[Rfam]
RNA sequence: ACUCAACAGGAAUUCUUUAAAAAGGGUGAGUUGAAACUGUAAAAGCAAGCCGUCUUAGAACGGAUCCUUGACCAGUUUGUUAGCCCUAAACUUGUUUUUAAGGAGUUU
Numbered sequence: 001a002c003u004c005a006a007c008a009g010g011a012a013u014u015c016u017u018u019a020a021a022a023a024g025g026g027u028g029a030g031u032u033g034a035a036a037c038u039g040u041a042a043a044a045g046c047a048a049g050c051c052g053u054c055u056u057a058g059a060a061c062g063g064a065u066c067c068u069u070g071a072c073c074a075g076u077u078u079g080u081u082a083g084c085c086c087u088a089a090a091c092u093u094g095u096u097u098u099u100a101a102g103g104a105g106u107u108u
Base pairs, nucleotide, nucleotide: 023087024086025085026084027083034078035077036076037075038074043069044068045067050063051062052061053060
Shown here is a 108-nucleotide RNA sequence from Gilvibacter sp. SZ-19, a member of the family "6S-Flavo RNA". The source organism's lineage runs through Bacteria, Pseudomonadati, Flavobacteriales, Flavobacteriaceae and Gilvibacter.